The record is a 373-nucleotide part of an RNA from Thermogutta terrifontis, which matches "Bacterial large subunit ribosomal RNA" in Rfam.
The family's consensus secondary structure is taken from published work.
Taxonomically the source falls in Thermogutta (Bacteria, Pseudomonadati, Planctomycetota, Thermoguttaceae).
The match comes from Rfam's covariance-model search (2771 bits).
RNA sequence: GAUAAAGCAGGUGAGAAUCCUGCUCGCCGAAAGCCUAAGGUUUCCUGGGGAAGGUAAUUCCGCCCAGGGUUAGCCGGUACCUUAGUCGAGGCCGAAAGGCGUAGACGAUGGACAGCAGGUCAACAUUCCUGCGCCACUGAGGAGGACUGAUGGAGGGACGGCGUCCGUAGGGUGAUCGGACGGUUAGAAAUGUCCGUGUACCGUUCUGAGGUGGGGGUAGGCAAAUCCGCCCCCGCAAGCCGAGGGACGGGACCCACCGCGUUUUGUUCGGGAAGUCAUCCGAAAGACGCCCGAGAAAAGCUCCUAAAGGUUGAAUCCUCAGUGACCGUACUAAAACCGACACAGGUAGGCGAGACGAGUAGUCUCAGGCGCU
Numbered sequence: 001g002a003u004a005a006a007g008c009a010g011g012u013g014a015g016a017a018u019c020c021u022g023c024u025c026g027c028c029g030a031a032a033g034c035c036u037a038a039g040g041u042u043u044c045c046u047g048g049g050g051a052a053g054g055u056a057a058u059u060c061c062g063c064c065c066a067g068g069g070u071u072a073g074c075c076g077g078u079a080c081c082u083u084a085g086u087c088g089a090g091g092c093c094g095a096a097a098g099g100c101g102u103a104g105a106c107g108a109u110g111g112a113c114a115g116c117a118g119g120u121c122a123a124c125a126u127u128c129c130u131g132c133g134c135c136a137c138u139g140a141g142g143a144g145g146a147c148u149g150a151u152g153g154a155g156g157g158a159c160g161g162c163g164u165c166c167g168u169a170g171g172g173u174g175a176u177c178g179g180a181c182g183g184u185u186a187g188a189a190a191u192g193u194c195c196g197u198g199u200a201c202c203g204u205u206c207u208g209a210g211g212u213g214g215g216g217g218u219a220g221g222c223a224a225a226u227c228c229g230c231c232c233c234c235g236c237a238a239g240c241c242g243a244g245g246g247a248c249g250g251g252a253c254c255c256a257c258c259g260c261g262u263u264u265u266g267u268u269c270g271g272g273a274a275g276u277c278a279u280c281c282g283a284a285a286g287a288c289g290c291c292c293g294a295g296a297a298a299a300g301c302u303c304c305u306a307a308a309g310g311u312u313g314a315a316u317c318c319u320c321a322g323u324g325a326c327c328g329u330a331c332u333a334a335a336a337c338c339g340a341c342a343c344a345g346g347u348a349g350g351c352g353a354g355a356c357g358a359g360u361a362g363u364c365u366c367a368g369g370c371g372c373u
Stems, first nucleotide, its partner, number of pairs: 006024006025371004033351004039332002044068006053061002075328004080111002085106003089102001091100003115132005135324009147309002152304004160291004168284001171280005177196005198253002203248004210241002212235007220228002257271003261267001337346002353365004